[Rfam]
RNA sequence: UACCGCUUGGUAAAAAUUCAUCGGUGCAGCAGAGGUUAGUAGAAUAUUAUUUUAUUCAAACAUCUUUGAGAUUAAGAAAGAA
Numbered sequence: 001u002a003c004c005g006c007u008u009g010g011u012a013a014a015a016a017u018u019c020a021u022c023g024g025u026g027c028a029g030c031a032g033a034g035g036u037u038a039g040u041a042g043a044a045u046a047u048u049a050u051u052u053u054a055u056u057c058a059a060a061c062a063u064c065u066u067u068g069a070g071a072u073u074a075a076g077a078a079a080g081a082a
Base pairs, nucleotide, nucleotide: 001012002011003010004009020072021071022070030068031067032066033065034064035063036062042057043056

This 82-nucleotide sequence belongs to the Rfam family "RT-18 RNA".